[Rfam]
RNA sequence: GUAGAUGCUCAUUCCACCCCUUAUGUUCGCGUUUACGCCUCAUAAAUCCCGGAAUGACGCAGAGCCAAAUUUGUGGCGCCUAUUGUCCAGCUCCUUGAUGAGUACCUCAUCAGAACCUUCGGACAAAACGUUGAGUGAGGCGCCAAACUGUUGUCUUAUGACCUGACUUUGUUAAACACUUGCCGUGAUGGCAAGUGUUUUUUU
Numbered sequence: 001g002u003a004g005a006u007g008c009u010c011a012u013u014c015c016a017c018c019c020c021u022u023a024u025g026u027u028c029g030c031g032u033u034u035a036c037g038c039c040u041c042a043u044a045a046a047u048c049c050c051g052g053a054a055u056g057a058c059g060c061a062g063a064g065c066c067a068a069a070u071u072u073g074u075g076g077c078g079c080c081u082a083u084u085g086u087c088c089a090g091c092u093c094c095u096u097g098a099u100g101a102g103u104a105c106c107u108c109a110u111c112a113g114a115a116c117c118u119u120c121g122g123a124c125a126a127a128a129c130g131u132u133g134a135g136u137g138a139g140g141c142g143c144c145a146a147a148c149u150g151u152u153g154u155c156u157u158a159u160g161a162c163c164u165g166a167c168u169u170u171g172u173u174a175a176a177c178a179c180u181u182g183c184c185g186u187g188a189u190g191g192c193a194a195g196u197g198u199u200u201u202u203u204u
Stems, first nucleotide, its partner, number of pairs: 001065002006061003009057004015052001017051001027037001075144007085124004097111004153162003175199011
Dot-bracket structure: ((...(((((((..(.(.........(.........).............)).)))).)))..)).........(((((((...((((........((((.......)))).........)))).............)))))))........(((....)))............(((((((((((...))))))))))).....